[Rfam]
RNA sequence: CAUUAUUAAACCUAGCACCUCUGUAUAUCCUCGGUGAUAAGGACCGAGAGUUUCUACCGGGAAUCCGUAAAAUUCCUGACUAUAGAGGCAGAAUAAGUGGAG
Numbered sequence: 001c002a003u004u005a006u007u008a009a010a011c012c013u014a015g016c017a018c019c020u021c022u023g024u025a026u027a028u029c030c031u032c033g034g035u036g037a038u039a040a041g042g043a044c045c046g047a048g049a050g051u052u053u054c055u056a057c058c059g060g061g062a063a064u065c066c067g068u069a070a071a072a073u074u075c076c077u078g079a080c081u082a083u084a085g086a087g088g089c090a091g092a093a094u095a096a097g098u099g100g101a102g
Stems, first nucleotide, its partner, number of pairs: 018088008030048006058078007
A member of the RNA family "Purine riboswitch aptamer" from Amphibacillus xylanus, 102 nucleotides long. The match comes from Rfam's covariance-model search (81 bits). The base pairs follow the family's consensus structure, which is taken from published work. Rfam links the family to the GO term purine nucleobase biosynthetic process. The organism belongs to Amphibacillus xylanus, within Bacteria.